[Rfam]
RNA: Small nucleolar RNA SNORA5
Organism: Acipenser ruthenus
RNA sequence: UGCAGCCUUGUCAUAUUUCAGUAUGCCCUUCCUGGUGGUGUAUAUUGGCCAAAAUGUCUUCUACAAGAAACAUGUAGUUCAUGGGCCACACAUCUAGAACGGAUAGGUUCUGGGGAUUGUGCUACAAAUAAAU
Dot-bracket structure: .(.((.............((((((((((........)).))))))))..........)).)............(((((.......((.((....................)).)).....)))))........